[Rfam]
RNA sequence: GAGCUUGAGCUGCAAAGAGAGCUAUCCGUGAACAGUAUGCUGUGUGUGCGAAAAUUCACUGUCAUGGAGCUGCUCUCUUUAUGGACAAGUUC
Numbered sequence: 001g002a003g004c005u006u007g008a009g010c011u012g013c014a015a016a017g018a019g020a021g022c023u024a025u026c027c028g029u030g031a032a033c034a035g036u037a038u039g040c041u042g043u044g045u046g047u048g049c050g051a052a053a054a055u056u057c058a059c060u061g062u063c064a065u066g067g068a069g070c071u072g073c074u075c076u077c078u079u080u081a082u083g084g085a086c087a088a089g090u091u092c
Base pairs, nucleotide, nucleotide: 014080015079016078017077018076020074021073022072025068026067027066028065032062033061035059036058
Shown here is a 92-nucleotide sequence from Daphnia galeata, a member of the family "mir-46/mir-47/mir-281 microRNA precursor family". The base pairs follow the family's consensus structure, which was predicted with RNAalifold. On this family, see Lau et al., Science 2001: "An abundant class of tiny RNAs with probable regulatory roles in Caenorhabditis elegans".